[Rfam]
A member of the RNA family "sRNA-Xcc1" from Muribacter muris, 85 nucleotides long. A search with the family's covariance model found it, with a score of 74 bits. Rfam classes the family as a small RNA.
RNA sequence: GCCGAGGGGGUGAGGAAUACAACACCCGAAAGGGGAAUAACUCCAGCUCACUUUACAGGGCUUCUGAACCCCUCGGCACCCUAUU
Numbered sequence: 001g002c003c004g005a006g007g008g009g010g011u012g013a014g015g016a017a018u019a020c021a022a023c024a025c026c027c028g029a030a031a032g033g034g035g036a037a038u039a040a041c042u043c044c045a046g047c048u049c050a051c052u053u054u055a056c057a058g059g060g061c062u063u064c065u066g067a068a069c070c071c072c073u074c075g076g077c078a079c080c081c082u083a084u085u
Stems, first nucleotide, its partner, number of pairs: 001077009012044001014042001016038001025034003045062005